[Rfam]
RNA sequence: UCCUGACAGUCGCAUUGGGUGACUGACACUAGCCACGACAGGAGAUUGAAAUG
Numbered sequence: 001u002c003c004u005g006a007c008a009g010u011c012g013c014a015u016u017g018g019g020u021g022a023c024u025g026a027c028a029c030u031a032g033c034c035a036c037g038a039c040a041g042g043a044g045a046u047u048g049a050a051a052u053g
Stems, first nucleotide, its partner, number of pairs: 002042004007025005

Background: The family of this 53-nucleotide sequence is "Mu-gpT-DE RNA". The sequence is in the family's curated seed alignment. Pairs were carried over by alignment from the consensus structure, which is taken from published work.